This 58-nucleotide RNA from Azospirillum sp. TSH58 belongs to the Rfam family "terC RNA".

RNA sequence: GUUCGGGUCCGGGCCCCUCUGACGGCUGAGGCGUCAGCCGUGAUGUCGGACACCGCUU
Numbered sequence: 001g002u003u004c005g006g007g008u009c010c011g012g013g014c015c016c017c018u019c020u021g022a023c024g025g026c027u028g029a030g031g032c033g034u035c036a037g038c039c040g041u042g043a044u045g046u047c048g049g050a051c052a053c054c055g056c057u058u
Stems, first nucleotide, its partner, number of pairs: 007051006022041008
NCBI's taxonomy places the organism under Bacteria, Pseudomonadota, Rhodospirillales, Azospirillaceae, Azospirillum.